Bacteroidales small SRP: a 101-nucleotide RNA sequence from Thermoflexibacter ruber. It is annotated as a non-coding RNA gene. The family's consensus secondary structure is taken from published work. Its family is annotated with SRP-dependent cotranslational protein targeting to membrane, signal sequence recognition and signal recognition particle, plasma membrane targeting in the Gene Ontology. The source organism's lineage runs through Bacteria, Pseudomonadati, Bacteroidota, Thermoflexibacteraceae and Thermoflexibacter.
RNA sequence: UGCACCCGCAAGCACCUACGACCAGCUCCUGUGAACCCCUCCAGGACGGGAACGUAGCAAAGGUAAACGGUUGUAGCGGUGCGAUAGGGGCUUGCUUUUUU
Numbered sequence: 001u002g003c004a005c006c007c008g009c010a011a012g013c014a015c016c017u018a019c020g021a022c023c024a025g026c027u028c029c030u031g032u033g034a035a036c037c038c039c040u041c042c043a044g045g046a047c048g049g050g051a052a053c054g055u056a057g058c059a060a061a062g063g064u065a066a067a068c069g070g071u072u073g074u075a076g077c078g079g080u081g082c083g084a085u086a087g088g089g090g091c092u093u094g095c096u097u098u099u100u101u
Stems, first nucleotide, its partner, number of pairs: 008095006015088004019083002021080002